[Rfam]
Nucleotides: 131
Stems, first nucleotide, its partner, number of pairs: 002060004018046009028037001072122005083109005
Number, partner (000 for none) and nucleotide at each position: 001000u002060g003059c004058a005057g006000c007000u008000g009000u010000g011000u012000c013000a014000a015000a016000u017000u018046u019045g020044g021043u022042g023041c024040c025039u026038g027000c028037c029000c030000u031000g032000c033000c034000u035000g036000u037028g038026u039025a040024g041023g042022c043021a044020c045019u046018g047000a048000c049000c050000c051000a052000g053000a054000a055000g056000g057005c058004u059003g060002c061000c062000a063000c064000a065000g066000a067000a068000a069000c070000a071000c072122u073121g074120a075119c076118u077000c078000a079000u080000g081000g082000g083109c084108c085107c086106u087105g088000u089000u090000c091000c092000u093000g094000u095000g096000u097000c098000u099000c100000g101000g102000g103000c104000u105087c106086a107085g108084g109083g110000a111000u112000a113000a114000a115000u116000u117000u118076g119075g120074u121073u122072a123000c124000a125000g126000a127000u128000a129000c130000c131000a
Record summary
The record is a 131-nucleotide sequence, which matches "Small nucleolar RNA SNORA5" in Rfam. Pairs were carried over by alignment from the consensus structure, which was predicted with RNAfold. ACA5 is a member of the H/ACA class of snoRNA that guide the sites of modification of uridines to pseudouridines. It is one of the family's seed sequences. Its family is annotated with nucleolus and RNA processing in the Gene Ontology. The family is grouped with related families in Rfam's "SNORA5 clan". It is annotated as an H/ACA-box small nucleolar RNA.